[Rfam]
RNA sequence: ACCACGGCUAGCUCGACGGAGCGAACCCCAGAACCUGACUGGUUGCCGUUGGUUCCUUUUUAUCAGGA
Dot-bracket structure: ((((((((..((((....)))).....((((..[[[[[))))..)))).)))).........]]]]].
Numbered sequence: 001a002c003c004a005c006g007g008c009u010a011g012c013u014c015g016a017c018g019g020a021g022c023g024a025a026c027c028c029c030a031g032a033a034c035c036u037g038a039c040u041g042g043u044u045g046c047c048g049u050u051g052g053u054u055c056c057u058u059u060u061u062a063u064c065a066g067g068a
Stems, first nucleotide, its partner, number of pairs: 001053004005048004011022004028042004034067005
Record summary: Rfam assigns this 68-nucleotide sequence from Neorhodopirellula pilleata to the family "int-alpA RNA". Rfam's curators write: Acidobacteria (1 example), Planctomycetes (1 example), Proteobacteria. The base pairs follow the family's consensus structure, which is taken from published work. It scores 43 bits against the family's covariance model. Rfam 15.1 lists 577 matches to the family in 491 species. Taxonomically the source falls in Neorhodopirellula (Bacteria, Pseudomonadati, Planctomycetota, Planctomycetia).